[Rfam]
The record is an 81-nucleotide sequence from Lottia gigantea, which matches "mir-263 microRNA precursor family" in Rfam. For this family Rfam cites "Direct sequencing and expression analysis of a large number of miRNAs in Aedes aegypti and a multi-species survey of novel mosquito miRNAs" (Li et al., BMC Genomics, 2009). The source organism's lineage runs through Eukaryota, Opisthokonta, Metazoa, Lottioidea and Lottia.
RNA sequence: GUCCGACAGUGAAUGGCACUGGUAGAAUUCACGGUGUAAACCUUGUGUUCCGUGGUCUUCCGGUGUCAUACAUUGUUAGUC
Numbered sequence: 001g002u003c004c005g006a007c008a009g010u011g012a013a014u015g016g017c018a019c020u021g022g023u024a025g026a027a028u029u030c031a032c033g034g035u036g037u038a039a040a041c042c043u044u045g046u047g048u049u050c051c052g053u054g055g056u057c058u059u060c061c062g063g064u065g066u067c068a069u070a071c072a073u074u075g076u077u078a079g080u081c
Stems, first nucleotide, its partner, number of pairs: 003079001005077006013069006020062003025057002029055006